Rfam assigns this 102-nucleotide RNA from Clostridium paraputrificum to the family "SAM riboswitch aptamer (S box leader)". The match comes from Rfam's covariance-model search (88 bits). Gene Ontology term of the family: regulation of gene expression. The source organism's lineage runs through Bacteria, Bacillota, Clostridia, Eubacteriales and Clostridium. Pairs were carried over by alignment from the consensus structure, which is taken from published work.
[Rfam]
RNA sequence: CUCUUAUCAAGAGAGGUGGAGGGAAAGGGCCCGAUGAAACCCGGCAACCUGUUAUAUUACAAGGUGCCAAUUCCUGUAGAUUUUUUAUCUACGAGAUGAGAG
Numbered sequence: 001c002u003c004u005u006a007u008c009a010a011g012a013g014a015g016g017u018g019g020a021g022g023g024a025a026a027g028g029g030c031c032c033g034a035u036g037a038a039a040c041c042c043g044g045c046a047a048c049c050u051g052u053u054a055u056a057u058u059a060c061a062a063g064g065u066g067c068c069a070a071u072u073c074c075u076g077u078a079g080a081u082u083u084u085u086u087a088u089c090u091a092c093g094a095g096a097u098g099a100g101a102g
Stems, first nucleotide, its partner, number of pairs: 001102008013042001015041003021032003027075003043068004048064002050061003072094001077091005